[Rfam]
RNA sequence: UGACCGGGACGGCCCGGUCGCUUUACAGGGCCUUCACCGGGACGACCCGU
Numbered sequence: 001u002g003a004c005c006g007g008g009a010c011g012g013c014c015c016g017g018u019c020g021c022u023u024u025a026c027a028g029g030g031c032c033u034u035c036a037c038c039g040g041g042a043c044g045a046c047c048c049g050u
Stems, first nucleotide, its partner, number of pairs: 001020008038049004
Guanidine-II riboswitch aptamer (mini-ykkC): a 50-nucleotide RNA from Pararhizobium polonicum.
The family's consensus secondary structure is taken from published work.